[Rfam]
RNA sequence: CCUUUUCGUGGUGAUGGAUCCCACCUGAGCACCCGCUCGAACCGCCGACUGCGCUGAUGGUUCCUACCGACUU
Number, nucleotide and partner (000 for none) at each position: 001c000002c000003u000004u000005u000006u000007c000008g000009u000010g025011g024012u023013g022014a000015u000016g064017g063018a062019u000020c060021c059022c013023a012024c011025c010026u000027g000028a000029g000030c000031a000032c000033c000034c000035g000036c000037u000038c000039g000040a000041a000042c000043c000044g054045c053046c000047g000048a000049c000050u000051g000052c000053g045054c044055u000056g000057a000058u000059g021060g020061u000062u018063c017064c016065u000066a000067c000068c000069g000070a000071c000072u000073u000
RNA: Fluoride riboswitch aptamer (crcB RNA motif)